Background: Rfam assigns this 182-nucleotide RNA from Medicago truncatula to the family "MIR2619 microRNA precursor family". Its family is annotated with RISC complex and miRNA-mediated post-transcriptional gene silencing in the Gene Ontology. Taxonomically the source falls in Medicago (Eukaryota, Magnoliopsida, eudicotyledons, Papilionoideae). It scores 113 bits against the family's covariance model.
RNA sequence: AAAUCGUCCCCUAAGUUUUGCAACUGUAGCAGUUUUGGCCCCCCAAGGCCAAUUUUUGGUAAAAAAAAUUAUUAAAAAAAAACAUGUGGCACCUCACUUAGGGUGUCACGUCAGCGUAGACCGGGUCAAAAUUAGCCUUGGGGGUCAAAAUUGCCACAUAUGCAAAACUUAGGGGACGGUUU
Numbered sequence: 001a002a003a004u005c006g007u008c009c010c011c012u013a014a015g016u017u018u019u020g021c022a023a024c025u026g027u028a029g030c031a032g033u034u035u036u037g038g039c040c041c042c043c044c045a046a047g048g049c050c051a052a053u054u055u056u057u058g059g060u061a062a063a064a065a066a067a068a069u070u071a072u073u074a075a076a077a078a079a080a081a082a083c084a085u086g087u088g089g090c091a092c093c094u095c096a097c098u099u100a101g102g103g104u105g106u107c108a109c110g111u112c113a114g115c116g117u118a119g120a121c122c123g124g125g126u127c128a129a130a131a132u133u134a135g136c137c138u139u140g141g142g143g144g145u146c147a148a149a150a151u152u153g154c155c156a157c158a159u160a161u162g163c164a165a166a167a168c169u170u171a172g173g174g175g176a177c178g179g180u181u182u
Base pairs, nucleotide, nucleotide: 001182002181004179005178006177007176008175012171013170014169015168016167017166018165019164020163021162022161025158026157027156029154030153031152032151033150034149035148036147037146038145039144040143041142042141044140045139046138084111085110087108088107089106090105091104092103093102